[Rfam]
RNA: MIR2593 microRNA precursor family
RNA sequence: UUAUAAGCAAAAGUCAACUUUUUAGAUUCAUUGAAUAAAUGAUGUAUCUGGACUAUAAUAUAGACCAGAUACAUCACUUUUUCAAUGAAUCUAAAAAGUGAACUUUUGCUUAUAA
Numbered sequence: 001u002u003a004u005a006a007g008c009a010a011a012a013g014u015c016a017a018c019u020u021u022u023u024a025g026a027u028u029c030a031u032u033g034a035a036u037a038a039a040u041g042a043u044g045u046a047u048c049u050g051g052a053c054u055a056u057a058a059u060a061u062a063g064a065c066c067a068g069a070u071a072c073a074u075c076a077c078u079u080u081u082u083c084a085a086u087g088a089a090u091c092u093a094a095a096a097a098g099u100g101a102a103c104u105u106u107u108g109c110u111u112a113u114a115a
Stems, first nucleotide, its partner, number of pairs: 002114006009107005014101003018098008027089009037079002040076005049067003